[Rfam]
RNA: SAM riboswitch aptamer (S box leader)
RNA sequence: UUCUUAUCAAGAGAGGUGGAGGGACUGGCCCUGUGAUAUCUCAGCAACCGCUAUUAAAGUAAGGUGCUACUUCCAGCAAGUUGAUUAAAAACUUGAUAGAUGAGGA
Number, nucleotide and partner (000 for none) at each position: 001u106002u105003c104004u103005u102006a101007u100008c099009a000010a000011g000012a000013g042014a041015g040016g039017u038018g000019g000020a000021g031022g030023g029024a000025c076026u075027g074028g073029c023030c022031c021032u000033g000034u000035g000036a000037u000038a017039u016040c015041u014042c013043a068044g067045c066046a065047a000048c064049c063050g060051c059052u058053a000054u000055u000056a000057a000058a052059g051060u050061a000062a000063g049064g048065u046066g045067c044068u043069a000070c000071u000072u098073c028074c027075a026076g025077c095078a094079a093080g092081u091082u090083g000084a000085u000086u000087a000088a000089a000090a082091a081092c080093u079094u078095g077096a000097u000098a072099g008100a007101u006102g005103a004104g003105g002106a001